[Rfam]
RNA sequence: GAGCGGUGAGGAAAAUCGCAUUUGUUGUGAUGGUAGGGUCCAUUAUAUUCAUUUGAAAUCACAAAUGACAAUCAAGUGGCGUCUGAGCUC
Number, nucleotide and partner (000 for none) at each position: 001g090002a089003g088004c087005g000006g000007u000008g000009a000010g000011g000012a000013a000014a000015a000016u000017c000018g000019c000020a000021u000022u000023u000024g000025u000026u000027g000028u000029g000030a000031u000032g000033g000034u000035a000036g000037g000038g000039u000040c000041c000042a000043u000044u000045a000046u000047a000048u000049u000050c000051a000052u000053u000054u000055g000056a000057a000058a000059u000060c000061a000062c000063a000064a000065a000066u000067g000068a000069c000070a000071a000072u000073c000074a000075a000076g000077u000078g000079g000080c000081g000082u000083c000084u000085g000086a000087g004088c003089u002090c001
Rfam assigns this 90-nucleotide sequence from Tripterygium wilfordii to the family "small nucleolar RNA snoR114". Lineage of the source: Eukaryota > Streptophytina > Euphyllophyta > Mesangiospermae > Tripterygium. Gene Ontology terms of the family: nucleolus and RNA processing. Pairs were carried over by alignment from the consensus structure, which was predicted with RNAalifold. By type it is a C/D-box small nucleolar RNA.